Description
Bacterial small subunit ribosomal RNA: a 564-nucleotide part of an RNA from Thiomicrospira cyclica. The source organism's lineage runs through Bacteria, Pseudomonadota, Piscirickettsiaceae, Thiomicrospira and Thiomicrospira cyclica.
RNA sequence: AAACUGAAGAGUUUGAUCCUGGCUCAGAAUGAACGCUGGCGGCAGGCCUAACACAUGCAAGUCGGACGGUAACAGGGGAGCUUGCUCCUGCUGACGAGUGGCGGACGGGUGAGUAAGGCAUGGGAAUCUGCCCUUUGGUUGGGGAUACCGUAUGGAAACGUACGUUAAUACCGAAUGAGAUCUACGGAUGAAAGGUGGCCUCUACUUGUAAGCUAUCGCCAAAGGAUGAGCCCAUGUUAGAUUAGCUAGUUGGUGAGGUAAUGGCUCACCAAGGCGACGAUCUAUAGCUGGUUUGAGAGGAUGAUCAGCCACACUGGGACUGAGACACGGCCCAGACUCCUACGGGAGGCAGCAGUGGGGAAUAUUGGACAAUGGGGGCAACCCUGAUCCAGCCAUGCCGCGUGUGUGAAGAAGGCCCGAGGGUUGUAAAGCACUUUUAGUGAGGAGGAAAGGCAGUUAGUUAAUACCUGAUUGCUGUGACGUUACUCACAGAAAAAGCACCGGCUAACUCUGUGCCAGCAGCCGCGGUAAUACAGAGGGUGCAAGCGUUAUUCGGAAUUACUG
Numbered sequence: 001a002a003a004c005u006g007a008a009g010a011g012u013u014u015g016a017u018c019c020u021g022g023c024u025c026a027g028a029a030u031g032a033a034c035g036c037u038g039g040c041g042g043c044a045g046g047c048c049u050a051a052c053a054c055a056u057g058c059a060a061g062u063c064g065g066a067c068g069g070u071a072a073c074a075g076g077g078g079a080g081c082u083u084g085c086u087c088c089u090g091c092u093g094a095c096g097a098g099u100g101g102c103g104g105a106c107g108g109g110u111g112a113g114u115a116a117g118g119c120a121u122g123g124g125a126a127u128c129u130g131c132c133c134u135u136u137g138g139u140u141g142g143g144g145a146u147a148c149c150g151u152a153u154g155g156a157a158a159c160g161u162a163c164g165u166u167a168a169u170a171c172c173g174a175a176u177g178a179g180a181u182c183u184a185c186g187g188a189u190g191a192a193a194g195g196u197g198g199c200c201u202c203u204a205c206u207u208g209u210a211a212g213c214u215a216u217c218g219c220c221a222a223a224g225g226a227u228g229a230g231c232c233c234a235u236g237u238u239a240g241a242u243u244a245g246c247u248a249g250u251u252g253g254u255g256a257g258g259u260a261a262u263g264g265c266u267c268a269c270c271a272a273g274g275c276g277a278c279g280a281u282c283u284a285u286a287g288c289u290g291g292u293u294u295g296a297g298a299g300g301a302u303g304a305u306c307a308g309c310c311a312c313a314c315u316g317g318g319a320c321u322g323a324g325a326c327a328c329g330g331c332c333c334a335g336a337c338u339c340c341u342a343c344g345g346g347a348g349g350c351a352g353c354a355g356u357g358g359g360g361a362a363u364a365u366u367g368g369a370c371a372a373u374g375g376g377g378g379c380a381a382c383c384c385u386g387a388u389c390c391a392g393c394c395a396u397g398c399c400g401c402g403u404g405u406g407u408g409a410a411g412a413a414g415g416c417c418c419g420a421g422g423g424u425u426g427u428a429a430a431g432c433a434c435u436u437u438u439a440g441u442g443a444g445g446a447g448g449a450a451a452g453g454c455a456g457u458u459a460g461u462u463a464a465u466a467c468c469u470g471a472u473u474g475c476u477g478u479g480a481c482g483u484u485a486c487u488c489a490c491a492g493a494a495a496a497a498g499c500a501c502c503g504g505c506u507a508a509c510u511c512u513g514u515g516c517c518a519g520c521a522g523c524c525g526c527g528g529u530a531a532u533a534c535a536g537a538g539g540g541u542g543c544a545a546g547c548g549u550u551a552u553u554c555g556g557a558a559u560u561a562c563u564g
Base pairs, nucleotide, nucleotide: 009025010024011023012022013021027554028553029552030551032550033549034548035547036546037545039401040400041399042398043397044396045394046393047359052357053356054355056354057353058352061102062101063100066099067098069095070094075091076089077088078087079086080085109312110311111310118237119236120235121234122233123232124231127229128228132225133224134223135222136221137220138219140174142172143171149164150163151162152161153160154159180189181188182187194217195216196215197214198213199212238284239283240282245275246274247273250272251271252270253269254268255267256266257265287309288308289307290306291302292301293300294299314335315334316333317332318331337348338347339346340345365391367390368389369388373386374385375384376383377382404434405433406432407431414425415424416423417422438495440490441489442488443487444486448481453475454474455473456472457471458470459469498543499542500541501540502539509538510537511536512535513534519526520525